[Rfam]
RNA: BsrC
RNA sequence: UUUUUCUAAAACGACAAAAGCCCUACCUCUCUUUCAUCCUUGCGGCUCCGAAGACCGCGCCAGUGUGAAUCAGAAACAAAUUCUUACU
Numbered sequence: 001u002u003u004u005u006c007u008a009a010a011a012c013g014a015c016a017a018a019a020g021c022c023c024u025a026c027c028u029c030u031c032u033u034u035c036a037u038c039c040u041u042g043c044g045g046c047u048c049c050g051a052a053g054a055c056c057g058c059g060c061c062a063g064u065g066u067g068a069a070u071c072a073g074a075a076a077c078a079a080a081u082u083c084u085u086a087c088u
Stems, first nucleotide, its partner, number of pairs: 034068003039063002041059005047053001